A member of the RNA family "Plastid-psbN 5UTR RNA" from Amazonocrinis nigriterrae, 61 nucleotides long.
It is annotated as a cis-regulatory element.
RNA sequence: AAAAACAGCCAUUACAGGAGUCGUACCCCAACCAGGGGCGACUUUACCAUACUCAGAAUUC
Numbered sequence: 001a002a003a004a005a006c007a008g009c010c011a012u013u014a015c016a017g018g019a020g021u022c023g024u025a026c027c028c029c030a031a032c033c034a035g036g037g038g039c040g041a042c043u044u045u046a047c048c049a050u051a052c053u054c055a056g057a058a059u060u061c
Base pairs, nucleotide, nucleotide: 017045018044019043020042021041022040023039024038026036027035
Pairs were carried over by alignment from the consensus structure, which was predicted with LocARNA. From the family's description: Plastid psbN is a non-coding RNA (ncRNA) recognised in plastids. It scores 61 bits against the family's covariance model.